[Rfam]
RNA sequence: AUCUUAUCAAGAGAGGUAGAGGGACUGGCCCGUUGAAACCCAGCAACCAAUAUAAUAGUUCAUUUACUAUUUUUAUAUGGUGCUAAAUCCUGCAGUAUUUUUAUUAAAUUGCUGAGAGAUGAGAG
Numbered sequence: 001a002u003c004u005u006a007u008c009a010a011g012a013g014a015g016g017u018a019g020a021g022g023g024a025c026u027g028g029c030c031c032g033u034u035g036a037a038a039c040c041c042a043g044c045a046a047c048c049a050a051u052a053u054a055a056u057a058g059u060u061c062a063u064u065u066a067c068u069a070u071u072u073u074u075a076u077a078u079g080g081u082g083c084u085a086a087a088u089c090c091u092g093c094a095g096u097a098u099u100u101u102u103a104u105u106a107a108a109u110u111g112c113u114g115a116g117a118g119a120u121g122a123g124a125g
Base pairs, nucleotide, nucleotide: 002124003123004122005121006120007119008118013041015040016039017038021031022030023029025092027090028089042084043083044082045081047080048079049076052073088117093114094113095112096111097110
Shown here is a 125-nucleotide RNA sequence from Clostridium sp. DSM 8431, a member of the family "SAM riboswitch aptamer (S box leader)".
The SAM riboswitch is found upstream of a number of genes which code for proteins involved in methionine or cysteine biosynthesis in Gram-positive bacteria.